[Rfam]
RNA: Small nucleolar RNA R64/Z200 family
RNA sequence: CCUCUGUGGUGAUGAAACAUGAAACUUAGCAUGUUAGACUUCAGAGAUUUUUUUGCCAAAAAAUCCAUGAGAAGAAAAUGCAGUUUCUGAUCAGAGA
Numbered sequence: 001c002c003u004c005u006g007u008g009g010u011g012a013u014g015a016a017a018c019a020u021g022a023a024a025c026u027u028a029g030c031a032u033g034u035u036a037g038a039c040u041u042c043a044g045a046g047a048u049u050u051u052u053u054u055g056c057c058a059a060a061a062a063a064u065c066c067a068u069g070a071g072a073a074g075a076a077a078a079u080g081c082a083g084u085u086u087c088u089g090a091u092c093a094g095a096g097a
Base pairs, nucleotide, nucleotide: 002096003095004094005093006092046065047064048063049062050061051060052059